[Rfam]
Shown here is a 121-nucleotide RNA from Capsicum annuum, a member of the family "mir-172 microRNA precursor family". A search with the family's covariance model found it, with a score of 72 bits. Rfam describes the family as follows. mir-172 has been experimentally verified in Arabidopsis thaliana.

RNA sequence: UUCAUUGCUGCUGCAGCAUCAUCAAGAUUCUCACGUCAAAUAAUUAAUAGAGUCCAUAUAACCAUGAAACUCUACAUAUAUAAAUAUAUGUGAAUCUUGAAGAUGCUGCACCUGCAAAAAG
Numbered sequence: 001u002u003c004a005u006u007g008c009u010g011c012u013g014c015a016g017c018a019u020c021a022u023c024a025a026g027a028u029u030c031u032c033a034c035g036u037c038a039a040a041u042a043a044u045u046a047a048u049a050g051a052g053u054c055c056a057u058a059u060a061a062c063c064a065u066g067a068a069a070c071u072c073u074a075c076a077u078a079u080a081u082a083a084a085u086a087u088a089u090g091u092g093a094a095u096c097u098u099g100a101a102g103a104u105g106c107u108g109c110a111c112c113u114g115c116a117a118a119a120a121g
Stems, first nucleotide, its partner, number of pairs: 010112001012110009022100009032090002